RNA sequence: UCUCCUGUUAAAGGGGAGUAGCUAUUACAACAAAGUCGUCAUUACGGGGUUUGAACCCCCGGCUUUGUUGGCAACGCCAACCGUUGUU
Numbered sequence: 001u002c003u004c005c006u007g008u009u010a011a012a013g014g015g016g017a018g019u020a021g022c023u024a025u026u027a028c029a030a031c032a033a034a035g036u037c038g039u040c041a042u043u044a045c046g047g048g049g050u051u052u053g054a055a056c057c058c059c060c061g062g063c064u065u066u067g068u069u070g071g072c073a074a075c076g077c078c079a080a081c082c083g084u085u086g087u088u
Stems, first nucleotide, its partner, number of pairs: 029069010046059005070088007